[Rfam]
RNA sequence: UAUAGAUACAGGGAUUUGUCCCUGGCCUGUUGAAACUGUUCUUGAACAGUUUCCUGAUAUAAGGAUUGCCCACAUGGCACUCAGCGUUGAAGAAAAAGCUCAGAUCGUAACCGACUACCAGCAAGCUGUU
Numbered sequence: 001u002a003u004a005g006a007u008a009c010a011g012g013g014a015u016u017u018g019u020c021c022c023u024g025g026c027c028u029g030u031u032g033a034a035a036c037u038g039u040u041c042u043u044g045a046a047c048a049g050u051u052u053c054c055u056g057a058u059a060u061a062a063g064g065a066u067u068g069c070c071c072a073c074a075u076g077g078c079a080c081u082c083a084g085c086g087u088u089g090a091a092g093a094a095a096a097a098g099c100u101c102a103g104a105u106c107g108u109a110a111c112c113g114a115c116u117a118c119c120a121g122c123a124a125g126c127u128g129u130u
Stems, first nucleotide, its partner, number of pairs: 008030005054084003063081002

About this RNA
The record is a 130-nucleotide RNA sequence from Pseudomonas protegens, which matches "Ribosomal S15 leader" in Rfam. For this family Rfam cites "Pseudoknot and translational control in the expression of the S15 ribosomal protein" (Benard et al., Biochimie, 1996). The family's RNA type in Rfam is cis-regulatory leader. Gene Ontology term of the family: regulation of translation, ncRNA-mediated. Rfam describes the family as follows. The E. coli Ribosomal S15 gene 5' UTR can form two alternative structures. The family's consensus secondary structure is taken from published work. Lineage of the source: Bacteria > Pseudomonadota > Pseudomonadales > Pseudomonadaceae > Pseudomonas protegens. It is one of the family's seed sequences.